[Rfam]
RNA sequence: UGUUUAGUAUAAGUAUGUCCCAUGCAAUAUUUAGGAUGUACUAAUACUAAAC
Numbered sequence: 001u002g003u004u005u006a007g008u009a010u011a012a013g014u015a016u017g018u019c020c021c022a023u024g025c026a027a028u029a030u031u032u033a034g035g036a037u038g039u040a041c042u043a044a045u046a047c048u049a050a051a052c
Stems, first nucleotide, its partner, number of pairs: 006048005012042001014040003018036003022031001
This 52-nucleotide sequence belongs to the Rfam family "mir-1302 microRNA precursor family".